[Rfam]
RNA sequence: UUCCGGCCGCCUGAUACUUUCGUCUCAACCUCGCUUCAGAUGUCGUAGGUGAGCAAAGUUUCAGGUGUGCCGGGAC
Dot-bracket structure: .(((((((((((((.(((((...((((.(((...............))))))).))))).))))))).))))))..
Numbered sequence: 001u002u003c004c005g006g007c008c009g010c011c012u013g014a015u016a017c018u019u020u021c022g023u024c025u026c027a028a029c030c031u032c033g034c035u036u037c038a039g040a041u042g043u044c045g046u047a048g049g050u051g052a053g054c055a056a057a058g059u060u061u062c063a064g065g066u067g068u069g070c071c072g073g074g075a076c
Stems, first nucleotide, its partner, number of pairs: 002074006008067007016059005024053004029049003
The record is a 76-nucleotide RNA sequence, which matches "mir-87 microRNA precursor family" in Rfam. On this family, see Aravin et al., Dev Cell 2003: "The small RNA profile during Drosophila melanogaster development". It scores 69 bits against the family's covariance model.